[Rfam]
RNA sequence: AGGUUAGCAUAGCAAAGUGGUUACUUCGAUAAAACGUUUUCUGAAAAAACUAAUUUUGCAACCCAAAUGGAAACCACUUGCGCAAUCUAACUUUUUA
Numbered sequence: 001a002g003g004u005u006a007g008c009a010u011a012g013c014a015a016a017g018u019g020g021u022u023a024c025u026u027c028g029a030u031a032a033a034a035c036g037u038u039u040u041c042u043g044a045a046a047a048a049a050c051u052a053a054u055u056u057u058g059c060a061a062c063c064c065a066a067a068u069g070g071a072a073a074c075c076a077c078u079u080g081c082g083c084a085a086u087c088u089a090a091c092u093u094u095u096u097a
Stems, first nucleotide, its partner, number of pairs: 002092006012081004017077004025072003029068001
Dot-bracket structure: .((((((....((((.((((....(((.(......................................).))).)))))))).....)))))).....
The record is a 97-nucleotide sequence from Brachionus plicatilis, which matches "Vault RNA" in Rfam.
By type it is a non-coding RNA gene.
Pairs were carried over by alignment from the consensus structure, which is taken from published work.
The match comes from Rfam's covariance-model search (51 bits).